[Rfam]
RNA sequence: GGUAUGUUAUUUACCCCCACGAUAAGCCCCGUACACUUAUUCGUGAUUUAAAUAAAAUACGAA
Numbered sequence: 001g002g003u004a005u006g007u008u009a010u011u012u013a014c015c016c017c018c019a020c021g022a023u024a025a026g027c028c029c030c031g032u033a034c035a036c037u038u039a040u041u042c043g044u045g046a047u048u049u050a051a052a053u054a055a056a057a058u059a060c061g062a063a
Base pairs, nucleotide, nucleotide: 008059009058010057011056012055018045019044020043021041022040023039024038025037026036

This 63-nucleotide RNA sequence from Bacillus thermotolerans belongs to the Rfam family "Ribosomal protein L13 leader". The literature on the family includes a 1994 paper in Prog Nucleic Acid Res Mol Biol by Zengel and Lindahl, "Diverse mechanisms for regulating ribosomal protein synthesis in Escherichia coli". Pairs were carried over by alignment from the consensus structure, which was predicted with CMfinder. About the family: This family is a putative r-protein leader autoregulatory structure found in B. subtilis and other low-GC Gram-positive bacteria. It is located in the 5' untranslated regions of mRNAs encoding the L13-S9 (rplM-rpsI) ribosomal protein operon. Taxonomically the source falls in Bacillus (Bacteria, Bacillati, Caryophanales, Bacillaceae).